[Rfam]
RNA sequence: GGCGAUAAACGGCCGAUGAAAUAAACCUUUCGGACCCGGGGGCGGUACCCGGCGCCUCCACCUGAACCCAUCCCCUCGCGGCGAUCCCGCGGCGAUGGGUUCAGGCGGGGGCGAAAUAGGAUCGACGAGGGUGUAAAGAUCGGACUUUUGCUCGGCAUGGUUCCGCCGUUAUCGGGCCUAUUUGUAGUUGCAAACGACAACUAUGCGGAAGCACGUCUCGCAGCGUAA
Numbered sequence: 001g002g003c004g005a006u007a008a009a010c011g012g013c014c015g016a017u018g019a020a021a022u023a024a025a026c027c028u029u030u031c032g033g034a035c036c037c038g039g040g041g042g043c044g045g046u047a048c049c050c051g052g053c054g055c056c057u058c059c060a061c062c063u064g065a066a067c068c069c070a071u072c073c074c075c076u077c078g079c080g081g082c083g084a085u086c087c088c089g090c091g092g093c094g095a096u097g098g099g100u101u102c103a104g105g106c107g108g109g110g111g112c113g114a115a116a117u118a119g120g121a122u123c124g125a126c127g128a129g130g131g132u133g134u135a136a137a138g139a140u141c142g143g144a145c146u147u148u149u150g151c152u153c154g155g156c157a158u159g160g161u162u163c164c165g166c167c168g169u170u171a172u173c174g175g176g177c178c179u180a181u182u183u184g185u186a187g188u189u190g191c192a193a194a195c196g197a198c199a200a201c202u203a204u205g206c207g208g209a210a211g212c213a214c215g216u217c218u219c220g221c222a223g224c225g226u227a228a
Base pairs, nucleotide, nucleotide: 001152002151003150004149005148014142015141016140017139026131027130028129030128031127032126036052037051038050039049040048053113054112055111056110057109058108059107153168154167155166156165
Dot-bracket structure: (((((........((((........(((.(((...(((((.......)))))(((((((...............................................)))))))............)))))).......)))).....)))))((((........))))............................................................